[Rfam]
RNA sequence: UGUCUCCUCCACCCUCCUCCUUUGGUGUGGAUUCAGCGCAACCCCUCGGGGUUGCGCUUUUUUUG
Dot-bracket structure: .......(((((((.........)).)))))...((((((((........)))))))).......
The record is a 65-nucleotide sequence from Sulfurisoma sediminicola, which matches "Betaproteobacteria toxic small RNA" in Rfam. It scores 67 bits against the family's covariance model. Overexpression in amino aid rich medium attenuates growth, suggesting role in repressing amino acid intake and metabolism. The literature on the family includes a 2012 paper in Genome Res by Kimelman et al., "A vast collection of microbial genes that are toxic to bacteria". The family's consensus secondary structure was predicted with WAR.